[Rfam]
RNA sequence: GGGUAAAUAAUGAAAGCUUAUAUUGUCUUGAAGAGAGCUAAUGACUAAAAAUUAUGCUCAGUUGGAUUACACUGAGGCCC
Number, nucleotide and partner (000 for none) at each position: 001g080002g079003g078004u077005a000006a073007a000008u071009a000010a000011u000012g000013a000014a000015a000016g000017c000018u000019u000020a000021u000022a000023u000024u000025g000026u000027c000028u000029u000030g000031a000032a000033g000034a000035g000036a000037g000038c000039u000040a000041a000042u000043g000044a000045c000046u000047a000048a000049a000050a000051a000052u000053u000054a000055u000056g000057c000058u000059c000060a000061g000062u000063u000064g000065g000066a000067u000068u000069a000070c000071a008072c000073u006074g000075a000076g000077g004078c003079c002080c001
The record is an 80-nucleotide RNA sequence from Neogale vison, which matches "Small nucleolar RNA SNORD115" in Rfam. For this family Rfam cites "Identification of brain-specific and imprinted small nucleolar RNA genes exhibiting an unusual genomic organization" (Cavaille et al., Proc Natl Acad Sci U S A, 2000). Gene Ontology terms of the family: nucleolus and RNA processing.